[Rfam]
RNA sequence: CUCUGAUUCAGCAGAUGCAUCAGGGCACAAGGAG
Numbered sequence: 001c002u003c004u005g006a007u008u009c010a011g012c013a014g015a016u017g018c019a020u021c022a023g024g025g026c027a028c029a030a031g032g033a034g
Stems, first nucleotide, its partner, number of pairs: 001025005011018002